Source information: This 112-nucleotide RNA from Cognatundibacterium rugosum belongs to the Rfam family "TPP riboswitch aptamer (THI element)". A search with the family's covariance model found it, with a score of 58 bits.
[Rfam]
RNA sequence: ACACCAUGCUAGGGGUCCUGUUAGCCGCAUCUGUCGAUGUGGAUAACGGGUGAGAAAUACCCUCGAACCUGAUCUGGAUAAUGCCAGCGAAGGGAAGCUGCUAGAGCGUGCA
Numbered sequence: 001a002c003a004c005c006a007u008g009c010u011a012g013g014g015g016u017c018c019u020g021u022u023a024g025c026c027g028c029a030u031c032u033g034u035c036g037a038u039g040u041g042g043a044u045a046a047c048g049g050g051u052g053a054g055a056a057a058u059a060c061c062c063u064c065g066a067a068c069c070u071g072a073u074c075u076g077g078a079u080a081a082u083g084c085c086a087g088c089g090a091a092g093g094g095a096a097g098c099u100g101c102u103a104g105a106g107c108g109u110g111c112a
Base pairs, nucleotide, nucleotide: 008098009097010096011063012062013061014060016057017050018049019048020047021046022045023044068093069092070091074087075086076085077084